[Rfam]
RNA sequence: CAAGCCGGGUCGAGAGGCCCGGUUGAACCGGCAGGAGUCAGCAGAGGGCAUAGUACCUGGAACGAGGAGCGAUGCACGGCC
Numbered sequence: 001c002a003a004g005c006c007g008g009g010u011c012g013a014g015a016g017g018c019c020c021g022g023u024u025g026a027a028c029c030g031g032c033a034g035g036a037g038u039c040a041g042c043a044g045a046g047g048g049c050a051u052a053g054u055a056c057c058u059g060g061a062a063c064g065a066g067g068a069g070c071g072a073u074g075c076a077c078g079g080c081c
Base pairs, nucleotide, nucleotide: 001025002024004023005022006021007020008019009018010017011016038045039044047081048080049079056074058072060070
The family of this 81-nucleotide sequence from Gelria sp. Kuro-4 is "Group II catalytic intron D1-D4-1". The family has 237 seed sequences and 2,508 matches in Rfam 15.1. A reference for the family is Bonen and Vogel (2001), "The ins and outs of group II introns", Trends Genet. A search with the family's covariance model found it, with a score of 54 bits.